[Rfam]
RNA sequence: AAUACAUAUGAGCAAAGCAGUUGAAAAGCUGUGACGCAAAGCUUAGGGUCUAAACUCAAAAGAGCAUGAUUGCCAGUUGCAAAA
Numbered sequence: 001a002a003u004a005c006a007u008a009u010g011a012g013c014a015a016a017g018c019a020g021u022u023g024a025a026a027a028g029c030u031g032u033g034a035c036g037c038a039a040a041g042c043u044u045a046g047g048g049u050c051u052a053a054a055c056u057c058a059a060a061a062g063a064g065c066a067u068g069a070u071u072g073c074c075a076g077u078u079g080c081a082a083a084a
Stems, first nucleotide, its partner, number of pairs: 012037002017032006040078004046074002048070003055064003
c-di-GMP-I riboswitch aptamer: an 84-nucleotide sequence from Roseburia sp. CAG:197. Its Rfam clan is "c-di-GMP_I riboswitch clan". It scores 67 bits against the family's covariance model. Lineage of the source: Bacteria > Bacillati > Clostridia > Lachnospiraceae > Roseburia.